A member of the RNA family "SAM (S-adenosyl methionine) riboswitch aptamer" from Arthrobacter woluwensis, 115 nucleotides long. Clan: SAM clan. About the family: SAM-IV is a mRNA element that regulates gene expression via direct sensing of S-adenosylmethionine (SAM or AdoMet). Pairs were carried over by alignment from the consensus structure, which is taken from published work.
[Rfam]
RNA sequence: AGUCACGAGUGCCAGCGCCAAACCCCGGUUCGCUGGCCGGCAACCCUCCUCCUGCGGUGGGGUGCCCCGGGUGAAGACUCGGCCCAGCGCCGGCCGGCGCGGGCAAGCACAGGAA
Dot-bracket structure: ((((....(.((((((....((......)).)))))))(((..(((.((......))..))).))).........))))..((((.(((((....)))))))))...........